[Rfam]
RNA sequence: CGAUUGUCAGACACUUUUGGAUCUGCAGCAUCCAUUAAUGCUCCCCAGCAGUGGGAUCAAGUGUCUCGACAGUCG
Dot-bracket structure: (((((((.(((((....(((((.......))))).......((((.......)))).....)))))..)))))))